[Rfam]
RNA sequence: AACAACUCUAGUUGUUCAGUGUUUGAUUUGUAAAACUGUUUCAGGGACAGAACAAACUGGAGGUAAAGGACAGGACAA
Numbered sequence: 001a002a003c004a005a006c007u008c009u010a011g012u013u014g015u016u017c018a019g020u021g022u023u024u025g026a027u028u029u030g031u032a033a034a035a036c037u038g039u040u041u042c043a044g045g046g047a048c049a050g051a052a053c054a055a056a057c058u059g060g061a062g063g064u065a066a067a068g069g070a071c072a073g074g075a076c077a078a
Stems, first nucleotide, its partner, number of pairs: 006062008014053004019048002022045005028038001030036002
RNA: MIR5286 microRNA precursor family